Rfam assigns this 182-nucleotide RNA from Oceanicola sp. 22II-s10i to the family "Ruegeria cis52 sRNA".
Rfam links the family to the GO term regulation of gene expression.
RNA sequence: UCCGGAGCGCGUGCUUCAUGACGAUAUUGGGGAAGCUGACGCCCUUGAGGCGGGCGGUGCGGAUGUAUUGAGCGGUCAUGACCUCGGCCAUCGAGGCGCGGGUCAUCCGGGCGAUGUAGCCCAUGCCGUAGAGCGCGAUGGUCAGGACGGGCAGGAAGAAGUUUUCGAAAUUCGCGCCGUCC
Numbered sequence: 001u002c003c004g005g006a007g008c009g010c011g012u013g014c015u016u017c018a019u020g021a022c023g024a025u026a027u028u029g030g031g032g033a034a035g036c037u038g039a040c041g042c043c044c045u046u047g048a049g050g051c052g053g054g055c056g057g058u059g060c061g062g063a064u065g066u067a068u069u070g071a072g073c074g075g076u077c078a079u080g081a082c083c084u085c086g087g088c089c090a091u092c093g094a095g096g097c098g099c100g101g102g103u104c105a106u107c108c109g110g111g112c113g114a115u116g117u118a119g120c121c122c123a124u125g126c127c128g129u130a131g132a133g134c135g136c137g138a139u140g141g142u143c144a145g146g147a148c149g150g151g152c153a154g155g156a157a158g159a160a161g162u163u164u165u166c167g168a169a170a171u172u173c174g175c176g177c178c179g180u181c182c
Stems, first nucleotide, its partner, number of pairs: 006139001008137005014131002016128001021124001028123004040111001042109001046105003051100002054097001055075001057073002060070003082096005145182003149177001151175002154165004
A search with the family's covariance model found it, with a score of 129 bits.
The organism belongs to Oceanicola, within Bacteria.